[Rfam]
RNA sequence: CAGCAUGUUUCCAAGGGCUGUGGCUGGUUGUAGCCAUGGGCUCUCCAGCUGCAUACAAGAGCAACCUGGAGGGACCCCAACAGCUCAGGUCAGCACAACACCUGUGGCUGCAAUCCACCUUUUCUAUAACG
Numbered sequence: 001c002a003g004c005a006u007g008u009u010u011c012c013a014a015g016g017g018c019u020g021u022g023g024c025u026g027g028u029u030g031u032a033g034c035c036a037u038g039g040g041c042u043c044u045c046c047a048g049c050u051g052c053a054u055a056c057a058a059g060a061g062c063a064a065c066c067u068g069g070a071g072g073g074a075c076c077c078c079a080a081c082a083g084c085u086c087a088g089g090u091c092a093g094c095a096c097a098a099c100a101c102c103u104g105u106g107g108c109u110g111c112a113a114u115c116c117a118c119c120u121u122u123u124c125u126a127u128a129a130c131g
Stems, first nucleotide, its partner, number of pairs: 011039002016035007068124006083111002086104004
This 131-nucleotide sequence from Molossus molossus belongs to the Rfam family "Small nucleolar RNA SNORA44". Rfam's curators write: ACA44 is a member of the H/ACA class of snoRNA that guide the sites of modification of uridines to pseudouridines. The family is grouped with related families in Rfam's "SNORA44 clan". NCBI's taxonomy places the organism under Eukaryota, Vertebrata, Dipnotetrapodomorpha, Theria, Molossus. Gene Ontology terms of the family: nucleolus and RNA processing.